[Rfam]
RNA sequence: UGGACAUCUGUAUUUAUUUUGUUUCUUCUUAAAGUGAACAUGACUCUUUGUAAAAUGUCCUAGAGAAAUACAUUAGCUUUCUGUUCAUGCUUUGCAAGGAAAAAGGGUAGAUCAUUCUCCUACUGACAAUU
Numbered sequence: 001u002g003g004a005c006a007u008c009u010g011u012a013u014u015u016a017u018u019u020u021g022u023u024u025c026u027u028c029u030u031a032a033a034g035u036g037a038a039c040a041u042g043a044c045u046c047u048u049u050g051u052a053a054a055a056u057g058u059c060c061u062a063g064a065g066a067a068a069u070a071c072a073u074u075a076g077c078u079u080u081c082u083g084u085u086c087a088u089g090c091u092u093u094g095c096a097a098g099g100a101a102a103a104a105g106g107g108u109a110g111a112u113c114a115u116u117c118u119c120c121u122a123c124u125g126a127c128a129a130u131u
Stems, first nucleotide, its partner, number of pairs: 002060006009052003021044003024040001026038003071125002074122003090105004

Description: Rfam assigns this 131-nucleotide RNA from Chrysochloris asiatica to the family "Small Cajal body specific RNA 24". The base pairs follow the family's consensus structure, which was predicted with RNAfold. Rfam classes the family as a small Cajal body RNA. scaRNAs are a specific class of small nuclear RNAs which localise to the Cajal bodies and guide the modification of RNA polymerase II transcribed spliceosomal RNAs U1, U2, U4, U5 and U12. ACA12 belongs to the H/ACA box class of guide RNAs as it has the predicted hairpin-hinge-hairpin-tail structure,the conserved H/ACA-box motifs and is found associated with GAR1. The literature on the family includes a 2002 paper in EMBO J by Darzacq et al., "Cajal body-specific small nuclear RNAs: a novel class of 2'-O-methylation and pseudouridylation guide RNAs". A search with the family's covariance model found it, with a score of 110 bits.